[Rfam]
RNA sequence: AAUGAUGGUUUCGUAACUUUUCAUUAUAGGUUUUAUGGGACUUUUUUCUACAACAAAAUAGACUCCAUAAUUCCUACAGUAGUUUUACCCAAUACAGAAAUGAUAGAACC
Numbered sequence: 001a002a003u004g005a006u007g008g009u010u011u012c013g014u015a016a017c018u019u020u021u022c023a024u025u026a027u028a029g030g031u032u033u034u035a036u037g038g039g040a041c042u043u044u045u046u047u048c049u050a051c052a053a054c055a056a057a058a059u060a061g062a063c064u065c066c067a068u069a070a071u072u073c074c075u076a077c078a079g080u081a082g083u084u085u086u087a088c089c090c091a092a093u094a095c096a097g098a099a100a101u102g103a104u105a106g107a108a109c110c
Stems, first nucleotide, its partner, number of pairs: 001025005008017002028043005061110001064107002067104002070101003074097001078093001080091001082089001

Notes: The family of this 110-nucleotide RNA sequence from Streptococcus intermedius is "Streptococcus RNA 266". The family has 4 seed sequences and 223 matches in Rfam 15.1. For this family Rfam cites "Identification of 88 regulatory small RNAs in the TIGR4 strain of the human pathogen Streptococcus pneumoniae" (Acebo et al., RNA, 2012). Lineage of the source: Bacteria > Bacilli > Streptococcaceae > Streptococcus > Streptococcus intermedius. The match comes from Rfam's covariance-model search (72 bits).